[Rfam]
RNA sequence: AUUUAACAGAAGCUUGGUAAUGUGCAUAUAAAUUGAUUUGGGUUUCUAGGCCGGCCCUCUCUGAUGCCAUUUGACUUUGAUUUGGGGACAUGGUUCUACAACAAAACG
Numbered sequence: 001a002u003u004u005a006a007c008a009g010a011a012g013c014u015u016g017g018u019a020a021u022g023u024g025c026a027u028a029u030a031a032a033u034u035g036a037u038u039u040g041g042g043u044u045u046c047u048a049g050g051c052c053g054g055c056c057c058u059c060u061c062u063g064a065u066g067c068c069a070u071u072u073g074a075c076u077u078u079g080a081u082u083u084g085g086g087g088a089c090a091u092g093g094u095u096c097u098a099c100a101a102c103a104a105a106a107c108g
Stems, first nucleotide, its partner, number of pairs: 012025002015022001040091001042089003050081001052079001054075001056073001